[Rfam]
The family of this 312-nucleotide RNA from Castanea mollissima is "Plant signal recognition particle RNA". The organism belongs to Castanea, within Eukaryota.
RNA sequence: GCCGGGUUCAGUAACGUGAACCUUUAACUCAAGUGGGGGCAUAAGAGUGAUGGAACAUUGCUUUGGUUCUAGUUGGCUGGGUGUCUGUCUGUGGCUUCUUCUCUGGCUCGCCCAUUCCAAGCCAGGAGUUGAGGCUUGGGACUUGAGCGAAGGCUCUGGGUCUCGUGGUUCCUAGAGAAGAGGGUACAGCGUGAGGCUGGAUUCACAGAGCAGCGACUACCUCUCCCUCCUGGCAGUGGAAGGAAAACGAGCUAGUGCCACUCACACCCAAACAUGGCCUUCUGGGCUAAUCUCAAUUGAACCAACACUUUU
Numbered sequence: 001g002c003c004g005g006g007u008u009c010a011g012u013a014a015c016g017u018g019a020a021c022c023u024u025u026a027a028c029u030c031a032a033g034u035g036g037g038g039g040c041a042u043a044a045g046a047g048u049g050a051u052g053g054a055a056c057a058u059u060g061c062u063u064u065g066g067u068u069c070u071a072g073u074u075g076g077c078u079g080g081g082u083g084u085c086u087g088u089c090u091g092u093g094g095c096u097u098c099u100u101c102u103c104u105g106g107c108u109c110g111c112c113c114a115u116u117c118c119a120a121g122c123c124a125g126g127a128g129u130u131g132a133g134g135c136u137u138g139g140g141a142c143u144u145g146a147g148c149g150a151a152g153g154c155u156c157u158g159g160g161u162c163u164c165g166u167g168g169u170u171c172c173u174a175g176a177g178a179a180g181a182g183g184g185u186a187c188a189g190c191g192u193g194a195g196g197c198u199g200g201a202u203u204c205a206c207a208g209a210g211c212a213g214c215g216a217c218u219a220c221c222u223c224u225c226c227c228u229c230c231u232g233g234c235a236g237u238g239g240a241a242g243g244a245a246a247a248c249g250a251g252c253u254a255g256u257g258c259c260a261c262u263c264a265c266a267c268c269c270a271a272a273c274a275u276g277g278c279c280u281u282c283u284g285g286g287c288u289a290a291u292c293u294c295a296a297u298u299g300a301a302c303c304a305a306c307a308c309u310u311u312u
Base pairs, nucleotide, nucleotide: 001040002039003038004023005022006021007020008019009018010017028037029036030035043312044311045310046309047308048307049306051304052303053302056299057298058296059295060294063290064289065288066287067286069285070284071283072282075279076278077277078276079269080268081267082266083265084264087263092260093259094258096257103255104254105253106252107251108250109249110248112243113242115241116240117239118238119237121234122233123232124231125230126229127228128227131171132170133169135167137165138164139163140162141161142160143159144158145157146155147154148153172177179224180223181222182221183220190215191214192213197208198207199206
Rfam links the family to the GO terms SRP-dependent cotranslational protein targeting to membrane, signal sequence recognition and signal recognition particle, endoplasmic reticulum targeting. The family's RNA type in Rfam is non-coding RNA gene.